The family of this 377-nucleotide sequence from Advenella mimigardefordensis is "Betaproteobacteria transfer-messenger RNA". Its Rfam clan is "tRNA clan". A reference for the family is Williams and Bartel (1996), "Phylogenetic analysis of tmRNA secondary structure", RNA. It scores 160 bits against the family's covariance model. From the family's description: Bacterial tmRNA, also known as 10Sa RNA or SsrA, is named for its dual tRNA and mRNA-like properties. Its role is to liberate the mRNA from a stalled ribosome.

[Rfam]
RNA sequence: GUGAGCUGGGGAUUGUGAAUUAGUCCCGGUUUGUGGUAUUAUGUAAUCUAAGCUGUAUAUCUGGUUGACUGAAUGUUUUCUGGACGCGGGUUCGACUCCCGCCGUCUCCACCAACAGUGUAUUUGUAUAUUAAGUGUAUUUGUGCUUUUGCUGCAGUUUCUGCAAGGCCGGUUCGAGUAUGCUGCUGAUGGGGACGCCAUGGUUUCGACAGGAAAAGAUAGGAAGAUCGGCAGCCGGUAGGCGAUGACCGUAAAUCAAGCAAAACCUUUAAAUGCAAAUGACGAAAGUUACGCAUUAGCAGCCUAAUACUGGCUAGCUAGGAGCCUUAUCCACUUGGCAACAGAACGGAUAAAAAAGGGAGCUUCGGCUCCCUUUUU
Numbered sequence: 001g002u003g004a005g006c007u008g009g010g011g012a013u014u015g016u017g018a019a020u021u022a023g024u025c026c027c028g029g030u031u032u033g034u035g036g037u038a039u040u041a042u043g044u045a046a047u048c049u050a051a052g053c054u055g056u057a058u059a060u061c062u063g064g065u066u067g068a069c070u071g072a073a074u075g076u077u078u079u080c081u082g083g084a085c086g087c088g089g090g091u092u093c094g095a096c097u098c099c100c101g102c103c104g105u106c107u108c109c110a111c112c113a114a115c116a117g118u119g120u121a122u123u124u125g126u127a128u129a130u131u132a133a134g135u136g137u138a139u140u141u142g143u144g145c146u147u148u149u150g151c152u153g154c155a156g157u158u159u160c161u162g163c164a165a166g167g168c169c170g171g172u173u174c175g176a177g178u179a180u181g182c183u184g185c186u187g188a189u190g191g192g193g194a195c196g197c198c199a200u201g202g203u204u205u206c207g208a209c210a211g212g213a214a215a216a217g218a219u220a221g222g223a224a225g226a227u228c229g230g231c232a233g234c235c236g237g238u239a240g241g242c243g244a245u246g247a248c249c250g251u252a253a254a255u256c257a258a259g260c261a262a263a264a265c266c267u268u269u270a271a272a273u274g275c276a277a278a279u280g281a282c283g284a285a286a287g288u289u290a291c292g293c294a295u296u297a298g299c300a301g302c303c304u305a306a307u308a309c310u311g312g313c314u315a316g317c318u319a320g321g322a323g324c325c326u327u328a329u330c331c332a333c334u335u336g337g338c339a340a341c342a343g344a345a346c347g348g349a350u351a352a353a354a355a356a357g358g359g360a361g362c363u364u365c366g367g368c369u370c371c372c373u374u375u376u377u
Stems, first nucleotide, its partner, number of pairs: 052234004061230002064228001069222002076215007086102005103196007235250004320335002323333001326352006355374008